[Rfam]
RNA sequence: GUUACCUUUAAAUCAGUCCAGAGAGGCUGGCAAGGUGUUGCAGAACGAGCUUCUGCAUUAGCAUUGUGUGCUUAGGGAAGGAUGUCCUUAACCAUAGAGUGCCAAGCAUCUUGCCGAUUGGGCAAGGUGCUUUUUUUAU
Numbered sequence: 001g002u003u004a005c006c007u008u009u010a011a012a013u014c015a016g017u018c019c020a021g022a023g024a025g026g027c028u029g030g031c032a033a034g035g036u037g038u039u040g041c042a043g044a045a046c047g048a049g050c051u052u053c054u055g056c057a058u059u060a061g062c063a064u065u066g067u068g069u070g071c072u073u074a075g076g077g078a079a080g081g082a083u084g085u086c087c088u089u090a091a092c093c094a095u096a097g098a099g100u101g102c103c104a105a106g107c108a109u110c111u112u113g114c115c116g117a118u119u120g121g122g123c124a125a126g127g128u129g130c131u132u133u134u135u136u137u138a139u
Base pairs, nucleotide, nucleotide: 003037004036005035006034007033008032013030014029015028016027017026018025064099065098067096068095069094070093072091073090074089075088076087077086104132105131106130107129108128109127110126111125112124113123114122115121
The record is a 139-nucleotide RNA sequence from Radiobacillus deserti, which matches "PyrR binding site" in Rfam. The source organism's lineage runs through Bacteria, Bacillota, Caryophanales, Bacillaceae and Radiobacillus. The family's consensus secondary structure is taken from published work. On this family, see Bonner et al., Nucleic Acids Res 2001: "Molecular recognition of pyr mRNA by the Bacillus subtilis attenuation regulatory protein PyrR". From the family's description: This family represents the PyrR binding site and terminator structure. The family's RNA type in Rfam is cis-regulatory element.